A member of the RNA family "Lysine riboswitch aptamer" from Photobacterium gaetbulicola, 184 nucleotides long. Taxonomically the source falls in Photobacterium gaetbulicola (Bacteria, Pseudomonadota, Vibrionales, Vibrionaceae). A search with the family's covariance model found it, with a score of 126 bits. The family's consensus secondary structure is taken from published work.

RNA sequence: ACUAAGGGUAGAGGCGCAUCGUCUAUUAGUAGUAAAUCUUAGGGUGAUUCCGAUGAGGGUUUGCGAAAGGAGCCGAUGCCGAAGUAAGUAUGGACUAUCAAGCCUGCUUGCUGGGGUUGUCACCGAACAGGGGCAACACUGCCAUAGUAUAUAAUUACAUUAACUAUGGAGCGCUACUGUGGAG
Numbered sequence: 001a002c003u004a005a006g007g008g009u010a011g012a013g014g015c016g017c018a019u020c021g022u023c024u025a026u027u028a029g030u031a032g033u034a035a036a037u038c039u040u041a042g043g044g045u046g047a048u049u050c051c052g053a054u055g056a057g058g059g060u061u062u063g064c065g066a067a068a069g070g071a072g073c074c075g076a077u078g079c080c081g082a083a084g085u086a087a088g089u090a091u092g093g094a095c096u097a098u099c100a101a102g103c104c105u106g107c108u109u110g111c112u113g114g115g116g117u118u119g120u121c122a123c124c125g126a127a128c129a130g131g132g133g134c135a136a137c138a139c140u141g142c143c144a145u146a147g148u149a150u151a152u153a154a155u156u157a158c159a160u161u162a163a164c165u166a167u168g169g170a171g172c173g174c175u176a177c178u179g180u181g182g183a184g
Base pairs, nucleotide, nucleotide: 007178008177009176010175011174016079017078018077019076020075021074023072024071032064033063034062035061036060037059038058039057083112084111085110086109087108088107089106090105092103113140114139116137117136118135119134120133121132123130142169143168144167145166146165147164148163